Rfam assigns this 87-nucleotide RNA from Gossypium mustelinum to the family "MIR7486 microRNA precursor family".

RNA sequence: CACAUCAACGCGCUUUGCUGACGUGGCAACAAAUCGCGUUCACGAGGGGGCGAUUUGUUGCCACGUCAGCAAAGCGUUAUGAUGUGG
Dot-bracket structure: (((((((..((((((((((((.(((((((((((((((..((....))..))))))))))))))).))))))))))))..))))))).
It scores 84 bits against the family's covariance model. The base pairs follow the family's consensus structure, which was predicted with RNAalifold.